[Rfam]
RNA sequence: UGGCACCUACGGGGGCCUUAAACAUAGCUGGACUAAAGACAAAAACCUAAGGUCUGGCACGCUAAACGGAAGACAGAAA
Number, nucleotide and partner (000 for none) at each position: 001u000002g017003g016004c015005a000006c014007c013008u012009a000010c000011g000012g008013g007014g006015g004016c003017c002018u000019u000020a000021a000022a000023c000024a000025u000026a000027g058028c057029u056030g055031g054032a053033c052034u000035a000036a000037a000038g000039a000040c000041a000042a000043a000044a000045a000046c000047c000048u000049a000050a000051g000052g033053u032054c031055u030056g029057g028058c027059a000060c000061g000062c000063u000064a000065a000066a000067c000068g000069g000070a000071a000072g000073a000074c000075a000076g000077a000078a000079a000